Background:
Shown here is a 101-nucleotide RNA from Lepidopterella palustris, a member of the family "Small nucleolar RNA Z13/snr52". NCBI's taxonomy places the organism under Eukaryota, Fungi, Dikarya, saccharomyceta, Lepidopterella palustris. It scores 94 bits against the family's covariance model. By type it is a C/D-box small nucleolar RNA. The base pairs follow the family's consensus structure, which was predicted with PFOLD.
[Rfam]
RNA sequence: CCCACCUAGAUGAUGAAAUAUUUCGGAUGUAAAUUAUCAGUAUACCACCGAGAGCGCAAAACCGUGUGGAUAUUUCCGUUGCCUUCCUUCUGAUCAUGAUU
Dot-bracket structure: ....(..................((((...............................................))))...................)...